[Rfam]
RNA sequence: ACGCUGAUUGCAUGUUCGCUGGCGUUGCCGGCAAGCAUGCCCAGGCAGUCGAGACCUUCGAGACUGCGGUGCGGUUCGCCGUGCUGGUUGUUUUUCCUUCCCCGGGCGCAUGUCGCGUCCAUCCACCUCACCCCCAAGGGAUACACCUCCCUUGCGGGCGG
Numbered sequence: 001a002c003g004c005u006g007a008u009u010g011c012a013u014g015u016u017c018g019c020u021g022g023c024g025u026u027g028c029c030g031g032c033a034a035g036c037a038u039g040c041c042c043a044g045g046c047a048g049u050c051g052a053g054a055c056c057u058u059c060g061a062g063a064c065u066g067c068g069g070u071g072c073g074g075u076u077c078g079c080c081g082u083g084c085u086g087g088u089u090g091u092u093u094u095u096c097c098u099u100c101c102c103c104g105g106g107c108g109c110a111u112g113u114c115g116c117g118u119c120c121a122u123c124c125a126c127c128u129c130a131c132c133c134c135c136a137a138g139g140g141a142u143a144c145a146c147c148u149c150c151c152u153u154g155c156g157g158g159c160g161g
Stems, first nucleotide, its partner, number of pairs: 011039004015034001018032006045067006053089004068085007127161002135154007
Rfam assigns this 161-nucleotide RNA from Ralstonia pickettii to the family "radC RNA". The source organism's lineage runs through Bacteria, Pseudomonadati, Betaproteobacteria, Ralstonia and Ralstonia pickettii. By type it is a cis-regulatory element. Pairs were carried over by alignment from the consensus structure, which is taken from published work.